Source information:
The record is a 91-nucleotide sequence from Avibacterium volantium, which matches "TPP riboswitch aptamer (THI element)" in Rfam.
RNA sequence: UUGCAUUAGUCGGGGUGCUUAUUUAAGCUGAGAUGAUACCCGUGAACCUGAUACAGCUAAUACUGACGUAGGAAACUAAUUAUGCAAACGC
Numbered sequence: 001u002u003g004c005a006u007u008a009g010u011c012g013g014g015g016u017g018c019u020u021a022u023u024u025a026a027g028c029u030g031a032g033a034u035g036a037u038a039c040c041c042g043u044g045a046a047c048c049u050g051a052u053a054c055a056g057c058u059a060a061u062a063c064u065g066a067c068g069u070a071g072g073a074a075a076c077u078a079a080u081u082a083u084g085c086a087a088a089c090g091c
Stems, first nucleotide, its partner, number of pairs: 006079005011042004016036001017028004047072004054065003